[Rfam]
RNA sequence: UCCGUCCAAGGCAAUGGAGUUUGCCGUCCCCUCUAAAAGACUGGGAAAACCGCGCGAGCUAAUGACUCCUUCGAACGG
Numbered sequence: 001u002c003c004g005u006c007c008a009a010g011g012c013a014a015u016g017g018a019g020u021u022u023g024c025c026g027u028c029c030c031c032u033c034u035a036a037a038a039g040a041c042u043g044g045g046a047a048a049a050c051c052g053c054g055c056g057a058g059c060u061a062a063u064g065a066c067u068c069c070u071u072c073g074a075a076c077g078g
Stems, first nucleotide, its partner, number of pairs: 010025004016069006052059002
RNA: Fluoride riboswitch aptamer (crcB RNA motif)